[Rfam]
RNA sequence: CCUGUUGAUUGUACUUCAUCAGGUGCUCUGGUAACGUUGAAAAUCCCGGCACUUGUUGGAGUGCAAUUCACUUG
Dot-bracket structure: (..(.....(((.(((((.((.(((((..((.............)).))))).)).))))).))).....)..)
Numbered sequence: 001c002c003u004g005u006u007g008a009u010u011g012u013a014c015u016u017c018a019u020c021a022g023g024u025g026c027u028c029u030g031g032u033a034a035c036g037u038u039g040a041a042a043a044u045c046c047c048g049g050c051a052c053u054u055g056u057u058g059g060a061g062u063g064c065a066a067u068u069c070a071c072u073u074g
Stems, first nucleotide, its partner, number of pairs: 001074001004071001010065003014061005020055002023052005030046002
The record is a 74-nucleotide RNA from Cinara cedri, which matches "mir-305 microRNA precursor family" in Rfam. For this family Rfam cites "Computational and transcriptional evidence for microRNAs in the honey bee genome" (Weaver et al., Genome Biol, 2007). NCBI's taxonomy places the organism under Eukaryota, Metazoa, Bilateria, Protostomia, Cinara. The family's consensus secondary structure was predicted with RNAalifold.